Shown here is a 135-nucleotide RNA sequence from Pleuronectes platessa, a member of the family "U11 spliceosomal RNA". The match comes from Rfam's covariance-model search (113 bits). The literature on the family includes a 2008 paper in J Mol Evol by Marz et al., "Evolution of spliceosomal snRNA genes in metazoan animals". Rfam links the family to the GO terms U11 snRNP, mRNA 5'-splice site recognition and pre-mRNA 5'-splice site binding.
RNA sequence: AAAAAGGGCUUCUGCUAUGUUUGGCACAGGAGAUGAGGCGAGUGUCUCGUCUCUUGCGGAAUCUACAUCAAGAGAUUUCGGAAGCACAAUUUUUGCUACACGGGGCUGCUGGUGAUCGUUUGUCCUGGCGCCCCA
Numbered sequence: 001a002a003a004a005a006g007g008g009c010u011u012c013u014g015c016u017a018u019g020u021u022u023g024g025c026a027c028a029g030g031a032g033a034u035g036a037g038g039c040g041a042g043u044g045u046c047u048c049g050u051c052u053c054u055u056g057c058g059g060a061a062u063c064u065a066c067a068u069c070a071a072g073a074g075a076u077u078u079c080g081g082a083a084g085c086a087c088a089a090u091u092u093u094u095g096c097u098a099c100a101c102g103g104g105g106c107u108g109c110u111g112g113u114g115a116u117c118g119u120u121u122g123u124c125c126u127g128g129c130g131c132c133c134c135a
Stems, first nucleotide, its partner, number of pairs: 008085005013026005027056012057080007103133004108129005114124003
Record summary:
The family's RNA type in Rfam is spliceosomal small nuclear RNA. The family's consensus secondary structure is taken from published work.